Description:
Rfam assigns this 95-nucleotide RNA sequence to the family "S10-Clostridia ribosomal protein leader". The family's consensus secondary structure is taken from published work. It is one of the family's seed sequences. On this family, see Eckert and Weinberg, BMC Microbiol 2020: "Discovery of 20 novel ribosomal leader candidates in bacteria and archaea".

RNA sequence: AUAGAGUGUUGAUACGGAAGGUUGCUGAGAGCCGAAUUGAGCGGCUUGAUGGUUUUUCCGAGGAGCGAUGUCCAGUUCAAGAAACCGGGCGACAA
Numbered sequence: 001a002u003a004g005a006g007u008g009u010u011g012a013u014a015c016g017g018a019a020g021g022u023u024g025c026u027g028a029g030a031g032c033c034g035a036a037u038u039g040a041g042c043g044g045c046u047u048g049a050u051g052g053u054u055u056u057u058c059c060g061a062g063g064a065g066c067g068a069u070g071u072c073c074a075g076u077u078c079a080a081g082a083a084a085c086c087g088g089g090c091g092a093c094a095a
Stems, first nucleotide, its partner, number of pairs: 015060002018057004025051001069094004075090004